[Rfam]
RNA sequence: AAUGGUUUCUUACUUCCUAAAAGUAAGUGGUGCGGAUGGGAUUUCCUGCCUGGUUUCUAAUUUCCAGUUAAAAAAUUAGUGGCGAGCCUGCAA
Numbered sequence: 001a002a003u004g005g006u007u008u009c010u011u012a013c014u015u016c017c018u019a020a021a022a023g024u025a026a027g028u029g030g031u032g033c034g035g036a037u038g039g040g041a042u043u044u045c046c047u048g049c050c051u052g053g054u055u056u057c058u059a060a061u062u063u064c065c066a067g068u069u070a071a072a073a074a075a076u077u078a079g080u081g082g083c084g085a086g087c088c089u090g091c092a093a
Stems, first nucleotide, its partner, number of pairs: 009027007037048004050067004057079006
The record is a 93-nucleotide RNA, which matches "wcaG RNA" in Rfam. Pairs were carried over by alignment from the consensus structure, which is taken from published work. The family's RNA type in Rfam is cis-regulatory element.